[Rfam]
RNA sequence: CGGGCUGGCCGGGCGACCGCGUCGCCUUCCACACGAAAGGGAGGCGUCGAGGAAAGUCCGGGCUCCACAGAGCAAGGUGGUGGGUAACGCCCACCCGGGGAGACCCGCGGGACAGUGCCACAGAAAGCAGACCGCCGUGCCUCCGGGCGCGGUAAGGGUGAAACGGUGGUGUAAGAGACCACCAGCGCCCCAGGUGACUGGGACGGCUAGGUAAACCCCACCUGGAGCAAGGUCAGACAGGAUGCGUUCGAGGGCGGCUCGCCCGAGCAUCCGGGUAGACCGCUGGAGGCCGCCGGCAACGGCGGUCCGAGAUGGAUGGUCGCCCCUCUUCGGAGGACAGAACCCGGCUUAUGUGCCAGCCCGUCAC
Numbered sequence: 001c002g003g004g005c006u007g008g009c010c011g012g013g014c015g016a017c018c019g020c021g022u023c024g025c026c027u028u029c030c031a032c033a034c035g036a037a038a039g040g041g042a043g044g045c046g047u048c049g050a051g052g053a054a055a056g057u058c059c060g061g062g063c064u065c066c067a068c069a070g071a072g073c074a075a076g077g078u079g080g081u082g083g084g085u086a087a088c089g090c091c092c093a094c095c096c097g098g099g100g101a102g103a104c105c106c107g108c109g110g111g112a113c114a115g116u117g118c119c120a121c122a123g124a125a126a127g128c129a130g131a132c133c134g135c136c137g138u139g140c141c142u143c144c145g146g147g148c149g150c151g152g153u154a155a156g157g158g159u160g161a162a163a164c165g166g167u168g169g170u171g172u173a174a175g176a177g178a179c180c181a182c183c184a185g186c187g188c189c190c191c192a193g194g195u196g197a198c199u200g201g202g203a204c205g206g207c208u209a210g211g212u213a214a215a216c217c218c219c220a221c222c223u224g225g226a227g228c229a230a231g232g233u234c235a236g237a238c239a240g241g242a243u244g245c246g247u248u249c250g251a252g253g254g255c256g257g258c259u260c261g262c263c264c265g266a267g268c269a270u271c272c273g274g275g276u277a278g279a280c281c282g283c284u285g286g287a288g289g290c291c292g293c294c295g296g297c298a299a300c301g302g303c304g305g306u307c308c309g310a311g312a313u314g315g316a317u318g319g320u321c322g323c324c325c326c327u328c329u330u331c332g333g334a335g336g337a338c339a340g341a342a343c344c345c346g347g348c349u350u351a352u353g354u355g356c357c358a359g360c361c362c363g364u365c366a367c
Stems, first nucleotide, its partner, number of pairs: 001363009011352001012324007020049002023046008054350003058347005063227004070260004075223005080094005095109001096107004110218002115216002117212003132157002134153008165183006185207001186205002189202005231281004240272006252264004288307008
Record summary:
The family of this 367-nucleotide RNA sequence from Nocardioides terrae is "Bacterial RNase P class A". By type it is a ribozyme. The match comes from Rfam's covariance-model search (317 bits). NCBI's taxonomy places the organism under Bacteria, Bacillati, Actinomycetota, Propionibacteriales, Nocardioides.